[Rfam]
RNA: ASpks TB sRNA
RNA sequence: CUUGACCGAGCCGAGCCACAGCGGCCGGUCGUCGGGGCGGCCUUGGCCGUAGGUGGCCAGGAGGGCCUGGGCCUC
Dot-bracket structure: ..............(((.....)))......((....(....(((.(((....))).)))....)...)).....